Mammalian CPEB3 ribozyme: a 73-nucleotide sequence from Alligator mississippiensis. From the family's description: The mammalian CPEB3 ribozyme is a self cleaving RNA located in the second intron of the CPEB3 gene which belongs to a family of genes regulating messenger RNA polyadenylation. The base pairs follow the family's consensus structure, which is taken from published work.
RNA sequence: CCAAUUAGACAAAGAGUCACAGCAGAAGUGUUCACAUCACAACCCCUGUCAGGUAAUACCUGCAAAUUCUGCU
Numbered sequence: 001c002c003a004a005u006u007a008g009a010c011a012a013a014g015a016g017u018c019a020c021a022g023c024a025g026a027a028g029u030g031u032u033c034a035c036a037u038c039a040c041a042a043c044c045c046c047u048g049u050c051a052g053g054u055a056a057u058a059c060c061u062g063c064a065a066a067u068u069c070u071g072c073u
Stems, first nucleotide, its partner, number of pairs: 014045001016043002021073007028040003050062005
A search with the family's covariance model found it, with a score of 55 bits.